[Rfam]
RNA: sok antitoxin (CssrC)
Organism: Serratia fonticola
RNA sequence: GGGUGCUCUGGAUCUUUUUGUCCUGAGCAUUAGCAAGGGAUAGAAAGAGAAAAGCCCCGAAUCGAUGUAAAUCAACCCGAGGCCACUCUUAUGCAUGAACACCAUAAAGGUAGCCUCUUACCCGCCGAAAGGCAAGGACAAGGAGGCUAUCAUG
Dot-bracket structure: (((.(((.(...((((((((((((..((....))..))))))))))))...)))))))(..(.(.(...).)..)..)(((((.(((.(((((.........))))).))).)))))...((..(................)..))........